RNA sequence: GAAAGCUGAAAGACAUGGGUAGUGAGAUGUUGAUUUGAACUACUCAUCUCACUACCUUGUCUUUCACGCUGGA
Numbered sequence: 001g002a003a004a005g006c007u008g009a010a011a012g013a014c015a016u017g018g019g020u021a022g023u024g025a026g027a028u029g030u031u032g033a034u035u036u037g038a039a040c041u042a043c044u045c046a047u048c049u050c051a052c053u054a055c056c057u058u059g060u061c062u063u064u065c066a067c068g069c070u071g072g073a
Stems, first nucleotide, its partner, number of pairs: 008065008017057003021053009
The family of this 73-nucleotide RNA from Orchesella cincta is "mir-71 microRNA precursor family". Its family is annotated with RISC complex and miRNA-mediated post-transcriptional gene silencing in the Gene Ontology. The family has 36 seed sequences and 372 matches in Rfam 15.1.